[Rfam]
RNA sequence: GGGCCGCGGGCGGUAAAAGACCAAAGAACCGGGGGAAAUAACCAACCAACCCACCAAACCUGGCAUCCGUCGCUCGGGCGGGUGAAAGUGGGUGGACCGGGUGGCGGGGCGGUGGUCGGGGCGUGCAGGCUCACCCCCGAGGCGGCGAGGCAUAUGCAUCGCGCUCACGGCGCUCACCGCACUCACGACCCCAGACGCAAAUCGGCCCCCGCAGGGAGCGGCAUUCCCGAUGCGAGGGCCUGACCGACGAGGAAGCCAAACCUUCC
Numbered sequence: 001g002g003g004c005c006g007c008g009g010g011c012g013g014u015a016a017a018a019g020a021c022c023a024a025a026g027a028a029c030c031g032g033g034g035g036a037a038a039u040a041a042c043c044a045a046c047c048a049a050c051c052c053a054c055c056a057a058a059c060c061u062g063g064c065a066u067c068c069g070u071c072g073c074u075c076g077g078g079c080g081g082g083u084g085a086a087a088g089u090g091g092g093u094g095g096a097c098c099g100g101g102u103g104g105c106g107g108g109g110c111g112g113u114g115g116u117c118g119g120g121g122c123g124u125g126c127a128g129g130c131u132c133a134c135c136c137c138c139g140a141g142g143c144g145g146c147g148a149g150g151c152a153u154a155u156g157c158a159u160c161g162c163g164c165u166c167a168c169g170g171c172g173c174u175c176a177c178c179g180c181a182c183u184c185a186c187g188a189c190c191c192c193a194g195a196c197g198c199a200a201a202u203c204g205g206c207c208c209c210c211g212c213a214g215g216g217a218g219c220g221g222c223a224u225u226c227c228c229g230a231u232g233c234g235a236g237g238g239c240c241u242g243a244c245c246g247a248c249g250a251g252g253a254a255g256c257c258a259a260a261c262c263u264u265c266c
Stems, first nucleotide, its partner, number of pairs: 003248001005246002012060003070085006100178005204240005210234003214228004251266005
Shown here is a 266-nucleotide RNA sequence, a member of the family "Streptomyces sRNA 4677". Rfam 15.1 lists 563 matches to the family in 285 species. About the family: Located in the intergenic region between anti-sigma factor SCO4677 gene and a putative regulatory protein gene SCO4676. scr4677 expression requires the SCO4677 activity and scr4677 sRNA itself seem to affect the levels of the SCO4676-associated transcripts. It is annotated as a small RNA.